[Rfam]
RNA sequence: UUUGAGGGGAAUGUUGUCUGGCUCGAGGACUCUUUUUGCUUUGAUCAAACAAAUUUUUGGUUCAGAUCUGUUAUGCCAAUACCAGAUCUCUGAUCUACUCAUCAUUUUCUUGUUGAUUUGCUAGAGUCGUCGGACCAGGCUUCAUUCCCCCCAAA
Numbered sequence: 001u002u003u004g005a006g007g008g009g010a011a012u013g014u015u016g017u018c019u020g021g022c023u024c025g026a027g028g029a030c031u032c033u034u035u036u037u038g039c040u041u042u043g044a045u046c047a048a049a050c051a052a053a054u055u056u057u058u059g060g061u062u063c064a065g066a067u068c069u070g071u072u073a074u075g076c077c078a079a080u081a082c083c084a085g086a087u088c089u090c091u092g093a094u095c096u097a098c099u100c101a102u103c104a105u106u107u108u109c110u111u112g113u114u115g116a117u118u119u120g121c122u123a124g125a126g127u128c129g130u131c132g133g134a135c136c137a138g139g140c141u142u143c144a145u146u147c148c149c150c151c152c153a154a155a
Stems, first nucleotide, its partner, number of pairs: 001155004006150008016140006024132003